RNA sequence: UUUGCCUCAAGGCAAAGUCUGUGAAAACAGGUGACGCAAAGCUACAGGGGCUCUUGUCGAAAGACGGUGCUAGCCAGCUACCAAA
Numbered sequence: 001u002u003u004g005c006c007u008c009a010a011g012g013c014a015a016a017g018u019c020u021g022u023g024a025a026a027a028c029a030g031g032u033g034a035c036g037c038a039a040a041g042c043u044a045c046a047g048g049g050g051c052u053c054u055u056g057u058c059g060a061a062a063g064a065c066g067g068u069g070c071u072a073g074c075c076a077g078c079u080a081c082c083a084a085a
Stems, first nucleotide, its partner, number of pairs: 012037002017032006040079004047075002049071003056065003

Rfam assigns this 85-nucleotide sequence from Bdellovibrio sp. to the family "c-di-GMP-I riboswitch aptamer". The family's consensus secondary structure is taken from published work. The source organism's lineage runs through Bacteria, Pseudomonadati, Bdellovibrionia, Pseudobdellovibrionaceae and Bdellovibrio. It scores 64 bits against the family's covariance model.